[Rfam]
RNA sequence: UGGAAGGUAGAUACACGAGUUUUUACUACGUGUCAUAUAAUUCGUCACUUAAUCCUUCCAAAAAAAAAUUGCCUUCUGAUGACUGUAAUUUGUGAAGUAUUAAUUUACAGACAGAUACGGGGCAUACAUUU
Numbered sequence: 001u002g003g004a005a006g007g008u009a010g011a012u013a014c015a016c017g018a019g020u021u022u023u024u025a026c027u028a029c030g031u032g033u034c035a036u037a038u039a040a041u042u043c044g045u046c047a048c049u050u051a052a053u054c055c056u057u058c059c060a061a062a063a064a065a066a067a068a069u070u071g072c073c074u075u076c077u078g079a080u081g082a083c084u085g086u087a088a089u090u091u092g093u094g095a096a097g098u099a100u101u102a103a104u105u106u107a108c109a110g111a112c113a114g115a116u117a118c119g120g121g122g123c124a125u126a127c128a129u130u131u
Base pairs, nucleotide, nucleotide: 002059003058004057005056006055007054015045016044017043018042023037070124071123072122073121074120075119083110084109085108088105090102
This 131-nucleotide RNA sequence from Nylanderia fulva belongs to the Rfam family "Small Cajal body specific RNA 8". The match comes from Rfam's covariance-model search (79 bits). The family's RNA type in Rfam is small Cajal body RNA. The literature on the family includes a 2002 paper in EMBO J by Darzacq et al., "Cajal body-specific small nuclear RNAs: a novel class of 2'-O-methylation and pseudouridylation guide RNAs". Rfam's curators write: scaRNAs are a specific class of small nuclear RNAs which localise to the Cajal bodies and guide the modification of RNA polymerase II transcribed spliceosomal RNAs U1, U2, U4, U5 and U12. U92 belong to the H/ACA box class of guide RNAs as it has the predicted hairpin-hinge-hairpin-tail structure, conserved H/ACA-box motifs and is found associated with GAR1.